[Rfam]
RNA sequence: UUAAUAUUGAAAACUAAACCGUAGACAGCAGGUGUCGAAAGACUUAAUUUCCUGCCGAGGUACAAUACAUAGAUAUUGCCCCCGUCUACAAAAUGAUGGGGUUUUUUGUUGAGUAC
Numbered sequence: 001u002u003a004a005u006a007u008u009g010a011a012a013a014c015u016a017a018a019c020c021g022u023a024g025a026c027a028g029c030a031g032g033u034g035u036c037g038a039a040a041g042a043c044u045u046a047a048u049u050u051c052c053u054g055c056c057g058a059g060g061u062a063c064a065a066u067a068c069a070u071a072g073a074u075a076u077u078g079c080c081c082c083c084g085u086c087u088a089c090a091a092a093a094u095g096a097u098g099g100g101g102u103u104u105u106u107u108g109u110u111g112a113g114u115a116c
Stems, first nucleotide, its partner, number of pairs: 028055005034043003080101007
Ribosomal protein L10 leader: a 116-nucleotide sequence from [Eubacterium] infirmum.
The literature on the family includes a 1994 paper in Prog Nucleic Acid Res Mol Biol by Zengel and Lindahl, "Diverse mechanisms for regulating ribosomal protein synthesis in Escherichia coli".
The match comes from Rfam's covariance-model search (78 bits).
By type it is a cis-regulatory leader.
The organism belongs to [Eubacterium] infirmum, within Bacteria.
Pairs were carried over by alignment from the consensus structure, which was predicted with CMfinder.
Rfam's curators write: This family is a putative r-protein leader autoregulatory structure found in B. subtilis and other low-GC Gram-positive bacteria. It is located in the 5' untranslated regions of mRNAs encoding ribosomal proteins L10 and L12 (rplJ-rplL).